[Rfam]
RNA: Mammalian CPEB3 ribozyme
Organism: Alligator mississippiensis
RNA sequence: AGGGGUCACAAGUUUGAGGCCAUAGCAGAAGCACACAACACGGCCAUGUCAGAUUGCAACAAAUCUGCAAAUUCUGCU
Numbered sequence: 001a002g003g004g005g006u007c008a009c010a011a012g013u014u015u016g017a018g019g020c021c022a023u024a025g026c027a028g029a030a031g032c033a034c035a036c037a038a039c040a041c042g043g044c045c046a047u048g049u050c051a052g053a054u055u056g057c058a059a060c061a062a063a064u065c066u067g068c069a070a071a072u073u074c075u076g077c078u
Stems, first nucleotide, its partner, number of pairs: 013046001018045004024078007031041001050067006